Shown here is a 115-nucleotide sequence from Pseudonocardia sp., a member of the family "SAM riboswitch aptamer (S box leader)".
The organism belongs to Pseudonocardia, within Bacteria.
RNA sequence: CACUCAUCCCGAGGGGCAGAGGGACACGGCCCGGUGAAGCCCCGGCAACCACCGCAGGCGUGCGCGCCGCGGCAGGUGCCAAAUCCGUCCCGCGAGCGAGCGGGAGAGAUGAGGA
Numbered sequence: 001c002a003c004u005c006a007u008c009c010c011g012a013g014g015g016g017c018a019g020a021g022g023g024a025c026a027c028g029g030c031c032c033g034g035u036g037a038a039g040c041c042c043c044g045g046c047a048a049c050c051a052c053c054g055c056a057g058g059c060g061u062g063c064g065c066g067c068c069g070c071g072g073c074a075g076g077u078g079c080c081a082a083a084u085c086c087g088u089c090c091c092g093c094g095a096g097c098g099a100g101c102g103g104g105a106g107a108g109a110u111g112a113g114g115a
Stems, first nucleotide, its partner, number of pairs: 003113006013043005021032003026088004044080004049076002052072004084107001089104005